Shown here is a 68-nucleotide RNA sequence from Allostigmatella aurantiaca, a member of the family "SAH (S-adenosyl-L-homocysteine) riboswitch aptamer". The sequence is in the family's curated seed alignment.
RNA sequence: CAACCUGAGGAGCGCUGCAACGGGGACUUCCCGCCAGGCUCAGGUUCAUGUAACGGCGCUCGCUGACU
Numbered sequence: 001c002a003a004c005c006u007g008a009g010g011a012g013c014g015c016u017g018c019a020a021c022g023g024g025g026a027c028u029u030c031c032c033g034c035c036a037g038g039c040u041c042a043g044g045u046u047c048a049u050g051u052a053a054c055g056g057c058g059c060u061c062g063c064u065g066a067c068u
Base pairs, nucleotide, nucleotide: 002046003045004044005043006042007041008040021033022032023031024030025029